Shown here is a 173-nucleotide sequence from Trifolium pratense, a member of the family "small nucleolar RNA snoR143". Rfam links the family to the GO terms RNA processing and nucleolus. It is annotated as an H/ACA-box small nucleolar RNA. The source organism's lineage runs through Eukaryota, eudicotyledons, Gunneridae, Hologalegina and Trifolium.
RNA sequence: CUUAAAGAGAAAGCUUGAUUAUAGCUACUGCUUGUUUUAUGAUUAACAUAAACAUGUUUUUGAGAAAUAUGGUGGAUUUGUUGUAAUUCGACCGCGGACAGACCACCAUAGAGAUGGACUCCACAGAUGUUGAGUUUAUUGUCUCACACUUCUACUAGUUCCAUCUCACAUUU
Dot-bracket structure: .(((((..(...(.((((((((((............))))))).....))).).)...)))))...............................................((((((((..........(.(((..........)))...).........))))))))......